[Rfam]
RNA: Small nucleolar RNA SNORD45
RNA sequence: GGUCUCUGAUGGGUGUUGACAUGUCUUGGCUGAGCCUGGAUCUGAAGAUGGUCAGUUCAGCUCUAGAAUUCCUCUGAGACCUG
Numbered sequence: 001g002g003u004c005u006c007u008g009a010u011g012g013g014u015g016u017u018g019a020c021a022u023g024u025c026u027u028g029g030c031u032g033a034g035c036c037u038g039g040a041u042c043u044g045a046a047g048a049u050g051g052u053c054a055g056u057u058c059a060g061c062u063c064u065a066g067a068a069u070u071c072c073u074c075u076g077a078g079a080c081c082u083g
Stems, first nucleotide, its partner, number of pairs: 001081006